[Rfam]
Overview:
The record is a 76-nucleotide RNA from Cnephaeus nilssonii, which matches "mir-9229 microRNA precursor family" in Rfam. NCBI's taxonomy places the organism under Eukaryota, Eumetazoa, Bilateria, Chiroptera, Cnephaeus.
RNA sequence: GGAAAACCCUAAUGGAGCAGGAUUUGCUUCAGUGGGGCUUUGGUGCUCACUGAGUCUGCCCCUUGAGUGUGUCACU
Numbered sequence: 001g002g003a004a005a006a007c008c009c010u011a012a013u014g015g016a017g018c019a020g021g022a023u024u025u026g027c028u029u030c031a032g033u034g035g036g037g038c039u040u041u042g043g044u045g046c047u048c049a050c051u052g053a054g055u056c057u058g059c060c061c062c063u064u065g066a067g068u069g070u071g072u073c074a075c076u
Stems, first nucleotide, its partner, number of pairs: 001075001004072001006070002009067002012064001014062002017059003021056003029053008037044002
Dot-bracket structure: (..(.((.((.(.((.(((.(((.....((((((((((....)).)))))))))))))).)).).)).)).)..).